[Rfam]
RNA sequence: CUUGUGAAGACAUGCUUCCUUAUAUCCCCAUAUUAAUACAUCACUUAUGGAAUGUAAGGAAGUGUGUGGUUUCAAG
Numbered sequence: 001c002u003u004g005u006g007a008a009g010a011c012a013u014g015c016u017u018c019c020u021u022a023u024a025u026c027c028c029c030a031u032a033u034u035a036a037u038a039c040a041u042c043a044c045u046u047a048u049g050g051a052a053u054g055u056a057a058g059g060a061a062g063u064g065u066g067u068g069g070u071u072u073c074a075a076g
Stems, first nucleotide, its partner, number of pairs: 007070001010067016028050005
Background: mir-1 microRNA precursor family: a 76-nucleotide RNA from Perca flavescens. The family's consensus secondary structure was predicted with RNAalifold. The literature on the family includes a 2001 paper in Science by Lee and Ambros, "An extensive class of small RNAs in Caenorhabditis elegans". The source organism's lineage runs through Eukaryota, Euteleostomi, Ctenosquamata, Percomorphaceae and Perca. Rfam's curators write: This family represents the microRNA (miRNA) mir-1 family. miRNAs are transcribed as ~70nt precursors (modelled here) and subsequently processed by the Dicer enzyme to give a ~22nt product. In this case the mature sequence comes from the 3' arm of the precursor. The extents of the hairpin precursors are not generally known and are estimated based on hairpin prediction. Rfam links the family to the GO terms miRNA-mediated post-transcriptional gene silencing and RISC complex.